[Rfam]
RNA: SAM riboswitch aptamer (S box leader)
RNA sequence: CUCUUAUCAAGAGAGGCGGAGGGACGAGCCCGAUGAAGCCCGGCAACCCCGGUCACCAAGACCGGAAGGUGCCAAUUCUUGCAGAGCCCCGGAGGCUGCUGAGAGAUAAGAG
Numbered sequence: 001c002u003c004u005u006a007u008c009a010a011g012a013g014a015g016g017c018g019g020a021g022g023g024a025c026g027a028g029c030c031c032g033a034u035g036a037a038g039c040c041c042g043g044c045a046a047c048c049c050c051g052g053u054c055a056c057c058a059a060g061a062c063c064g065g066a067a068g069g070u071g072c073c074a075a076u077u078c079u080u081g082c083a084g085a086g087c088c089c090c091g092g093a094g095g096c097u098g099c100u101g102a103g104a105g106a107u108a109a110g111a112g
Base pairs, nucleotide, nucleotide: 001112002111003110004109005108006107007106008105013041015040016039017038021031022030023029025081026080027079028078042073043072044071045070047069048068049065050064051063052062077104082101083100084099085097086096087095